[Rfam]
RNA: mir-29 microRNA precursor family
Organism: Denticeps clupeoides
RNA sequence: GGAAGCUGGUUUCAGAUGGUGACUUAGAGUGAUGCUGAUGAUACAUCUAGCACCAUUUGAAAUCAGUGUUCU
Numbered sequence: 001g002g003a004a005g006c007u008g009g010u011u012u013c014a015g016a017u018g019g020u021g022a023c024u025u026a027g028a029g030u031g032a033u034g035c036u037g038a039u040g041a042u043a044c045a046u047c048u049a050g051c052a053c054c055a056u057u058u059g060a061a062a063u064c065a066g067u068g069u070u071c072u
Stems, first nucleotide, its partner, number of pairs: 001072004005067010016056006025049004